The record is a 180-nucleotide sequence from Nocardioides thalensis, which matches "Actinobacteria sRNA Ms_IGR-5" in Rfam. On this family, see Li et al., RNA 2013: "Identification of small RNAs in Mycobacterium smegmatis using heterologous Hfq".
[Rfam]
RNA sequence: ACACGGGAAAGGAGGUGGUCCGAGGAAUGAUUUCUUCAAGGACGCGUGAGGUGGCUGCUCGCUAGCAGCCCCCCGAUUCGGACGGGGUGCCGGCAAUUCCCGGCAGCCACCCGACCCGCAGGCGCAACCGGGCUCGUCCCCCGGCCGUGGUCGCUCGACCACGCCUGCGGGUCGCUCCAU
Numbered sequence: 001a002c003a004c005g006g007g008a009a010a011g012g013a014g015g016u017g018g019u020c021c022g023a024g025g026a027a028u029g030a031u032u033u034c035u036u037c038a039a040g041g042a043c044g045c046g047u048g049a050g051g052u053g054g055c056u057g058c059u060c061g062c063u064a065g066c067a068g069c070c071c072c073c074c075g076a077u078u079c080g081g082a083c084g085g086g087g088u089g090c091c092g093g094c095a096a097u098u099c100c101c102g103g104c105a106g107c108c109a110c111c112c113g114a115c116c117c118g119c120a121g122g123c124g125c126a127a128c129c130g131g132g133c134u135c136g137u138c139c140c141c142c143g144g145c146c147g148u149g150g151u152c153g154c155u156c157g158a159c160c161a162c163g164c165c166u167g168c169g170g171g172u173c174g175c176u177c178c179a180u
Stems, first nucleotide, its partner, number of pairs: 014059006061094003065090002068088004073081003112174013128144005

NCBI's taxonomy places the organism under Bacteria, Bacillati, Actinomycetota, Propionibacteriales, Nocardioides. The match comes from Rfam's covariance-model search (111 bits). It is annotated as a small RNA.